[Rfam]
RNA sequence: GGUCAACGCAAGGAGGCACACAUGGGACUGACCAAUUCAAUUAAUGUCCUGAUCGUCGGUGCAGCGUUUGUUUUCAUCGCGACGAUGCUGUUUAUCUGACACGGGUCUAAACAACUGAAACCCAUGAGUUGGCCAGGUUAGGCCUCUCUCCAGCAGAUACCAUUUCAAAACAAGUAAGAGGCGCAGGACACUUAAGUCCUGCGCCUC
Number, nucleotide and partner (000 for none) at each position: 001g000002g000003u000004c000005a000006a000007c000008g000009c000010a000011a000012g000013g000014a000015g048016g047017c046018a045019c000020a000021c000022a000023u000024g000025g000026g038027a037028c000029u000030g000031a000032c000033c000034a000035a000036u000037u027038c026039a000040a000041u000042u000043a000044a000045u018046g017047u016048c015049c000050u000051g000052a000053u000054c000055g000056u000057c000058g000059g000060u000061g000062c000063a000064g000065c000066g000067u000068u000069u000070g000071u000072u000073u000074u000075c000076a000077u000078c000079g000080c000081g000082a000083c000084g000085a000086u000087g000088c000089u000090g000091u000092u000093u000094a000095u000096c000097u000098g000099a000100c000101a000102c000103g000104g000105g000106u000107c000108u000109a000110a000111a000112c000113a000114a000115c000116u000117g000118a000119a000120a000121c000122c000123c000124a000125u000126g000127a000128g000129u000130u000131g000132g000133c000134c000135a000136g000137g000138u000139u000140a000141g000142g000143c000144c000145u000146c000147u000148c000149u000150c000151c000152a000153g000154c000155a000156g000157a000158u000159a000160c000161c000162a000163u000164u000165u000166c000167a000168a000169a000170a000171c000172a000173a000174g000175u000176a000177a000178g207179a206180g205181g204182c203183g202184c201185a200186g199187g198188a197189c196190a000191c000192u000193u000194a000195a000196g189197u188198c187199c186200u185201g184202c183203g182204c181205c180206u179207c178

This 207-nucleotide sequence from Agrobacterium albertimagni belongs to the Rfam family "Rhizobiales sRNA Atu_C9". It is annotated as a small RNA. Taxonomically the source falls in Agrobacterium albertimagni (Bacteria, Pseudomonadati, Alphaproteobacteria, Hyphomicrobiales).